[Rfam]
RNA sequence: UGGGCGGGAGGGAAUGAAGUUCUCCCGGGGGAAACCUGAACCGCUUUUUGAGCUGAUGACUUCUGUGAUAUG
Numbered sequence: 001u002g003g004g005c006g007g008g009a010g011g012g013a014a015u016g017a018a019g020u021u022c023u024c025c026c027g028g029g030g031g032a033a034a035c036c037u038g039a040a041c042c043g044c045u046u047u048u049u050g051a052g053c054u055g056a057u058g059a060c061u062u063c064u065g066u067g068a069u070a071u072g
Base pairs, nucleotide, nucleotide: 010026011025012024013023016063017062018061019060020059021058043053044052045051
Fluoride riboswitch aptamer (crcB RNA motif): a 72-nucleotide RNA from Hungatella hathewayi. Pairs were carried over by alignment from the consensus structure, which is taken from published work. The match comes from Rfam's covariance-model search (44 bits). Gene Ontology terms of the family: positive regulation of gene expression and response to fluoride.